[Rfam]
RNA sequence: AAACCCAGAAAAGCGAUGGACAGUGUCCUUUAGUCCGUCAUUUUUCUGGUUUGUU
Numbered sequence: 001a002a003a004c005c006c007a008g009a010a011a012a013g014c015g016a017u018g019g020a021c022a023g024u025g026u027c028c029u030u031u032a033g034u035c036c037g038u039c040a041u042u043u044u045u046c047u048g049g050u051u052u053g054u055u
Stems, first nucleotide, its partner, number of pairs: 002052002005049009015039007
RNA: MIR8008 microRNA precursor family
Organism: Solanum tuberosum